[Rfam]
RNA sequence: AAUAGGAGAAUAACAAAUCAGAUUUUUCCUCCUGAUUUACAGCCUUCUCCUCCUGAAAAAAUUCAAAUCUAAUUAAAAAUGCUAAAAUUCAGGAGGAAAAUUUUGAUUUAUCAUUUUCCUAUU
Numbered sequence: 001a002a003u004a005g006g007a008g009a010a011u012a013a014c015a016a017a018u019c020a021g022a023u024u025u026u027u028c029c030u031c032c033u034g035a036u037u038u039a040c041a042g043c044c045u046u047c048u049c050c051u052c053c054u055g056a057a058a059a060a061a062u063u064c065a066a067a068u069c070u071a072a073u074u075a076a077a078a079a080u081g082c083u084a085a086a087a088u089u090c091a092g093g094a095g096g097a098a099a100a101u102u103u104u105g106a107u108u109u110a111u112c113a114u115u116u117u118c119c120u121a122u123u
Base pairs, nucleotide, nucleotide: 001123002122003121004120005119006118007117008116009115010114011113013111015109016108017107018106019105020104021103022102024100025099026098027097029095030094031093032092033091034090035089037087038086041083042082045079046078048076
Notes: A member of the RNA family "MIR7504 microRNA precursor family" from Gossypium arboreum, 123 nucleotides long. Its family is annotated with miRNA-mediated post-transcriptional gene silencing and RISC complex in the Gene Ontology. The source organism's lineage runs through Eukaryota, Tracheophyta, Pentapetalae, rosids and Gossypium.